[Rfam]
RNA sequence: UGAACCUUUAAUACAGUCCAGUGAGGCUGAGAAGGAAGCGGAUAUUAGCGUGCAUUUGAAUGCAGGCUUGGUGUAAUAUACCCAAAACCUCUCAUCCAUUGGUGAGAGGUUUUUUUAUA
Numbered sequence: 001u002g003a004a005c006c007u008u009u010a011a012u013a014c015a016g017u018c019c020a021g022u023g024a025g026g027c028u029g030a031g032a033a034g035g036a037a038g039c040g041g042a043u044a045u046u047a048g049c050g051u052g053c054a055u056u057u058g059a060a061u062g063c064a065g066g067c068u069u070g071g072u073g074u075a076a077u078a079u080a081c082c083c084a085a086a087a088c089c090u091c092u093c094a095u096c097c098a099u100u101g102g103u104g105a106g107a108g109g110u111u112u113u114u115u116u117a118u119a
Base pairs, nucleotide, nucleotide: 005035006034007033008032009031014029015028016027017026018025045070047068048067049066051064052063053062054061055060084113085112086111087110088109089108090107091106092105093104094103095102096101
The family of this 119-nucleotide RNA sequence from Falsibacillus pallidus is "PyrR binding site". Its family is annotated with pyrimidine nucleobase transport and pyrimidine nucleobase biosynthetic process in the Gene Ontology. It is annotated as a cis-regulatory element. About the family: This family represents the PyrR binding site and terminator structure. This RNA structure is found upstream of a variety of genes involved in pyrimidine biosynthesis and transport. The alignment also includes a portion of the antiterminator structure.